Shown here is a 213-nucleotide RNA from Flavisphingopyxis soli, a member of the family "permuted transfer-messenger RNA". The family's RNA type in Rfam is non-coding RNA gene.
RNA sequence: GGCGAUAAAUUGUUGCGUGCAAUAAGCGCAGCGGACCCGGGGGCAGUACCCGGCGGCUCCACCAGAAAUCGCGCGAAAGCGGGGUUCCCGAUGGGGCCGAACCAGGAUCGACGUGUGUUCAAAAGCGCAGUUUUUGCCCGGGCUGAGUAACCCGUUAAAGGCUCAAAACCCAUAAGUGCCAACGAUAACGAAGCACUUGCUCUUGCAGCGUAA
Numbered sequence: 001g002g003c004g005a006u007a008a009a010u011u012g013u014u015g016c017g018u019g020c021a022a023u024a025a026g027c028g029c030a031g032c033g034g035a036c037c038c039g040g041g042g043g044c045a046g047u048a049c050c051c052g053g054c055g056g057c058u059c060c061a062c063c064a065g066a067a068a069u070c071g072c073g074c075g076a077a078a079g080c081g082g083g084g085u086u087c088c089c090g091a092u093g094g095g096g097c098c099g100a101a102c103c104a105g106g107a108u109c110g111a112c113g114u115g116u117g118u119u120c121a122a123a124a125g126c127g128c129a130g131u132u133u134u135u136g137c138c139c140g141g142g143c144u145g146a147g148u149a150a151c152c153c154g155u156u157a158a159a160g161g162c163u164c165a166a167a168a169c170c171c172a173u174a175a176g177u178g179c180c181a182a183c184g185a186u187a188a189c190g191a192a193g194c195a196c197u198u199g200c201u202c203u204u205g206c207a208g209c210g211u212a213a
Stems, first nucleotide, its partner, number of pairs: 001138005015128004027117003031114003037053005054099007139154004